Shown here is a 105-nucleotide RNA from Paenibacillus monticola, a member of the family "TPP riboswitch aptamer (THI element)". Taxonomically the source falls in Paenibacillus (Bacteria, Bacillati, Bacillota, Paenibacillaceae). A search with the family's covariance model found it, with a score of 76 bits. From the family's description: Vitamin B(1) in its active form thiamin pyrophosphate (TPP) is an essential coenzyme that is synthesised by coupling of pyrimidine and thiazole moieties in bacteria.
RNA sequence: UAAUUUCACUAGGGGAGUCUUUCGACUGAGACGGAGCUAUGAUGCUCUGGACCCUUGGAACCUGAUCUGGAUCAUACCAGCGGAGGGAAGUGGAACGAAACCUUC
Numbered sequence: 001u002a003a004u005u006u007c008a009c010u011a012g013g014g015g016a017g018u019c020u021u022u023c024g025a026c027u028g029a030g031a032c033g034g035a036g037c038u039a040u041g042a043u044g045c046u047c048u049g050g051a052c053c054c055u056u057g058g059a060a061c062c063u064g065a066u067c068u069g070g071a072u073c074a075u076a077c078c079a080g081c082g083g084a085g086g087g088a089a090g091u092g093g094a095a096c097g098a099a100a101c102c103u104u105c
Base pairs, nucleotide, nucleotide: 006093007092008091009090010089011055012054013053014052017026018025019024033048034047035046036045037044061086062085063084067080068079069078070077